Source information:
A member of the RNA family "tRNA" from Schizosaccharomyces pombe, 82 nucleotides long. The organism belongs to Schizosaccharomyces, within Eukaryota. Rfam's curators put it in the seed alignment. From the family's description: Transfer RNA (tRNA) molecules are approximately 80 nucleotides in length.

[Rfam]
RNA sequence: GUCACUAUGUCCGAGUGGUUAAGGAGUUAGACUUCAAAUCUAAUGGGCUUUGCCCGCGCAGGUUCAAAUCCUGCUGGUGACG
Numbered sequence: 001g002u003c004a005c006u007a008u009g010u011c012c013g014a015g016u017g018g019u020u021a022a023g024g025a026g027u028u029a030g031a032c033u034u035c036a037a038a039u040c041u042a043a044u045g046g047g048c049u050u051u052g053c054c055c056g057c058g059c060a061g062g063u064u065c066a067a068a069u070c071c072u073g074c075u076g077g078u079g080a081c082g
Stems, first nucleotide, its partner, number of pairs: 001081007010025003027043005058074005